[Rfam]
This 89-nucleotide sequence from Sorghum bicolor belongs to the Rfam family "MIR5387 microRNA precursor family". The organism belongs to Sorghum, within Eukaryota.

RNA sequence: UUGUAAUACGAACCGGUGCUAAAGGGUCUCUGCCCGCACCUGUCAGUAGCCGUUGGGCAGGACCCUUUAGCACCGGUUCGUGUUACGAA
Numbered sequence: 001u002u003g004u005a006a007u008a009c010g011a012a013c014c015g016g017u018g019c020u021a022a023a024g025g026g027u028c029u030c031u032g033c034c035c036g037c038a039c040c041u042g043u044c045a046g047u048a049g050c051c052g053u054u055g056g057g058c059a060g061g062a063c064c065c066u067u068u069a070g071c072a073c074c075g076g077u078u079c080g081u082g083u084u085a086c087g088a089a
Stems, first nucleotide, its partner, number of pairs: 003086025029061002034056003038053002040046002